[Rfam]
A member of the RNA family "Small nucleolar RNA Z13/snr52" from Coniochaeta hoffmannii, 104 nucleotides long. The organism belongs to Coniochaeta, within Eukaryota. Rfam 15.1 lists 1,203 matches to the family in 866 species. The family's RNA type in Rfam is C/D-box small nucleolar RNA.
RNA sequence: ACCUCUUCCAUGAUGAAAUAUUCCGGAUGUAAAAACAUAAUUUGUCUGAAAAGCGCAAAAACCCCAUGUUGAGAUUUCCGUUGCCUUCCUUCUGAUCGACAAGA
Numbered sequence: 001a002c003c004u005c006u007u008c009c010a011u012g013a014u015g016a017a018a019u020a021u022u023c024c025g026g027a028u029g030u031a032a033a034a035a036c037a038u039a040a041u042u043u044g045u046c047u048g049a050a051a052a053g054c055g056c057a058a059a060a061a062c063c064c065c066a067u068g069u070u071g072a073g074a075u076u077u078c079c080g081u082u083g084c085c086u087u088c089c090u091u092c093u094g095a096u097c098g099a100c101a102a103g104a
Stems, first nucleotide, its partner, number of pairs: 003103002024080004